[Rfam]
RNA: SAM riboswitch aptamer (S box leader)
RNA sequence: CACUCAUCAAGACCGGCUGAGGGAUAGGCCCUUUGACGCCGGGGCAACCAUCGGGUUCCGCCCGAACGGUGCCAACUCCUGCGGGGAGGGUUUCGACCUUCCGCGAGAGAUGAGUG
Numbered sequence: 001c002a003c004u005c006a007u008c009a010a011g012a013c014c015g016g017c018u019g020a021g022g023g024a025u026a027g028g029c030c031c032u033u034u035g036a037c038g039c040c041g042g043g044g045c046a047a048c049c050a051u052c053g054g055g056u057u058c059c060g061c062c063c064g065a066a067c068g069g070u071g072c073c074a075a076c077u078c079c080u081g082c083g084g085g086g087a088g089g090g091u092u093u094c095g096a097c098c099u100u101c102c103g104c105g106a107g108a109g110a111u112g113a114g115u116g
Stems, first nucleotide, its partner, number of pairs: 001116008013042005021031003025081004043073004048069002051065004077108001082105002085102006